Source information:
This 131-nucleotide RNA from Megasphaera lornae belongs to the Rfam family "Streptococcus sRNA SpR18". Taxonomically the source falls in Megasphaera (Bacteria, Bacillati, Negativicutes, Veillonellaceae). On this family, see Mann et al., PLoS Pathog 2012: "Control of virulence by small RNAs in Streptococcus pneumoniae". Pairs were carried over by alignment from the consensus structure, which was predicted with mfold. The family's RNA type in Rfam is small RNA. Rfam 15.1 lists 63 matches to the family in 54 species.
RNA sequence: AUCAACGGUUACAGAAGAUGAAAAACUGUAACCGGGAUUAAAAUGGGAACAUUUGUAAAAAAGAAUAAAUUGAAUAAUCGUUCCAAGUGGCGUACAUUGGGACAAAAAAUUAGACCGUAGUUUCAGGCUGC
Numbered sequence: 001a002u003c004a005a006c007g008g009u010u011a012c013a014g015a016a017g018a019u020g021a022a023a024a025a026c027u028g029u030a031a032c033c034g035g036g037a038u039u040a041a042a043a044u045g046g047g048a049a050c051a052u053u054u055g056u057a058a059a060a061a062a063g064a065a066u067a068a069a070u071u072g073a074a075u076a077a078u079c080g081u082u083c084c085a086a087g088u089g090g091c092g093u094a095c096a097u098u099g100g101g102a103c104a105a106a107a108a109a110u111u112a113g114a115c116c117g118u119a120g121u122u123u124c125a126g127g128c129u130g131c
Base pairs, nucleotide, nucleotide: 006034007033008032009031010030011029012028013027014026036124037123043118044117045116046115051066052065053064054063080103081102083101084100086098087097088096089095